[Rfam]
Nucleotides: 076
Base pairs, nucleotide, nucleotide: 015044016043017042021076022075023074024073026071027070028040029039030038048065049064050063051062052061053060054059
Number, partner (000 for none) and nucleotide at each position: 001000a002000g003000u004000c005000a006000c007000a008000a009000a010000u011000u012000c013000g014000a015044g016043g017042c018000c019000a020000a021076a022075g023074c024073a025000a026071a027070a028040g029039u030038g031000c032000u033000c034000a035000c036000a037000g038030u039029g040028c041000a042017g043016c044015c045000u046000g047000u048065c049064a050063g051062a052061u053060u054059c055000c056000a057000g058000u059054g060053a061052a062051u063050c064049u065048g066000u067000g068000a069000a070027u071026u072000c073024u074023g075022c076021u
Source information: Rfam assigns this 76-nucleotide sequence from Crocodylus porosus to the family "Mammalian CPEB3 ribozyme". The base pairs follow the family's consensus structure, which is taken from published work. A search with the family's covariance model found it, with a score of 53 bits. Its family is annotated with RNA nuclease activity in the Gene Ontology.